Shown here is a 145-nucleotide sequence from Microbacterium azadirachtae, a member of the family "FMN riboswitch aptamer (RFN element)". Lineage of the source: Bacteria > Bacillati > Micrococcales > Microbacteriaceae > Microbacterium.
RNA sequence: UCCUGUCCUCAGGGCGGGGUGGAAGUCCCCACCGGCGGUGUCGCGGCCAAGCCGCGCGAGCCCGCGAACGGUCCCCAUGGCGGGGACCGCCGAUCCGGUGCGAACCCGGAGCCGACGGUCAGAGUCCGGAUGAGAGAGGACAGAA
Dot-bracket structure: ..((((((((......(((.......))).[[((((((.....................[[))))...((.................))....(((((.......)))))]])).(((.....]]))).......))))))))..